Shown here is a 265-nucleotide RNA sequence from Tepidibacillus fermentans, a member of the family "Bacterial large signal recognition particle RNA".
RNA sequence: CCGUGCUAGAUGGGGAGGUAGCGGUGCCCUGUGACCUGCAAUCCGCUAUAGCAGGGUCGAAUUCCUAUCAGCGGUGAUCUCCAUGUAAGGUCUGGCUUAUGCAAGUGGUGUUGACGAUUGGGUCCUACGCAACGGACAUCUAUGAACCCCGUCAGGUCCGGAAGGAAGCAGCGGUAAGUAGAAUGGUUCGUGUGUUGUAGGGAAGCCUGAUCUGAGCUAACUACACAAGUUCGCUUGUAUGGGAUCAUCAAUGAUCGGUGCACGG
Numbered sequence: 001c002c003g004u005g006c007u008a009g010a011u012g013g014g015g016a017g018g019u020a021g022c023g024g025u026g027c028c029c030u031g032u033g034a035c036c037u038g039c040a041a042u043c044c045g046c047u048a049u050a051g052c053a054g055g056g057u058c059g060a061a062u063u064c065c066u067a068u069c070a071g072c073g074g075u076g077a078u079c080u081c082c083a084u085g086u087a088a089g090g091u092c093u094g095g096c097u098u099a100u101g102c103a104a105g106u107g108g109u110g111u112u113g114a115c116g117a118u119u120g121g122g123u124c125c126u127a128c129g130c131a132a133c134g135g136a137c138a139u140c141u142a143u144g145a146a147c148c149c150c151g152u153c154a155g156g157u158c159c160g161g162a163a164g165g166a167a168g169c170a171g172c173g174g175u176a177a178g179u180a181g182a183a184u185g186g187u188u189c190g191u192g193u194g195u196u197g198u199a200g201g202g203a204a205g206c207c208u209g210a211u212c213u214g215a216g217c218u219a220a221c222u223a224c225a226c227a228a229g230u231u232c233g234c235u236u237g238u239a240u241g242g243g244a245u246c247a248u249c250a251a252u253g254a255u256c257g258g259u260g261c262a263c264g265g
Stems, first nucleotide, its partner, number of pairs: 001265006009058003012030004017025001019023001035055005064258002067255004073249005080243010094230001097228002100225002105221002107218003116212008124201006130192002133190005139182005149174004157166003
NCBI's taxonomy places the organism under Bacteria, Bacillati, Bacilli, Caryophanales, Tepidibacillus. Clan: SRP clan. The family's consensus secondary structure is taken from published work. Rfam describes the family as follows. The signal recognition particle (SRP) is a universally conserved ribonucleoprotein involved in the co-translational targeting of proteins to membranes.